[Rfam]
This 135-nucleotide RNA from Krasilnikovia cinnamomea belongs to the Rfam family "c-di-AMP riboswitch aptamer (ydaO/yuaA leader)". Rfam 15.1 lists 7,607 matches to the family in 2,262 species. Taxonomically the source falls in Krasilnikovia (Bacteria, Bacillati, Micromonosporales, Micromonosporaceae).
RNA sequence: GGCAGGCCACCACCUAAUCGCCCUCGGGCGAGCCGGGGAACCACGUUUGUGGGGUGAAUCCGCGCCACCGCGCGGUAGGGAUCGCUUCCGUCCCGAACCCGUCAGCUAACCCGGUCGGUGGUCACGUGGAAGGAA
Numbered sequence: 001g002g003c004a005g006g007c008c009a010c011c012a013c014c015u016a017a018u019c020g021c022c023c024u025c026g027g028g029c030g031a032g033c034c035g036g037g038g039a040a041c042c043a044c045g046u047u048u049g050u051g052g053g054g055u056g057a058a059u060c061c062g063c064g065c066c067a068c069c070g071c072g073c074g075g076u077a078g079g080g081a082u083c084g085c086u087u088c089c090g091u092c093c094c095g096a097a098c099c100c101g102u103c104a105g106c107u108a109a110c111c112c113g114g115u116c117g118g119u120g121g122u123c124a125c126g127u128g129g130a131a132g133g134a135a
Base pairs, nucleotide, nucleotide: 011120012119013118014117018031019030020029032115033114034113035112036111037110042051043050052100053099054098060075061074062073063072078094079093080092081091
Dot-bracket structure: ..........((((...(((........)))((((((....((......))(((.....((((........))))..((((.........))))...))).........)))))).))))...............